Overview: Shown here is a 51-nucleotide RNA from Celeribacter halophilus, a member of the family "SAM/SAH riboswitch aptamer". The literature on the family includes a 2019 paper in Nucleic Acids Res by Weickhmann et al., "The structure of the SAM/SAH-binding riboswitch". The match comes from Rfam's covariance-model search (50 bits). Lineage of the source: Bacteria > Pseudomonadota > Alphaproteobacteria > Rhodobacterales > Celeribacter.
RNA sequence: CGGCCCGCACAACGGCUUCCUGACGUGUGGGCGACAUAACCCAAUGGAGCA
Numbered sequence: 001c002g003g004c005c006c007g008c009a010c011a012a013c014g015g016c017u018u019c020c021u022g023a024c025g026u027g028u029g030g031g032c033g034a035c036a037u038a039a040c041c042c043a044a045u046g047g048a049g050c051a
Stems, first nucleotide, its partner, number of pairs: 004031007013022002015050003019047002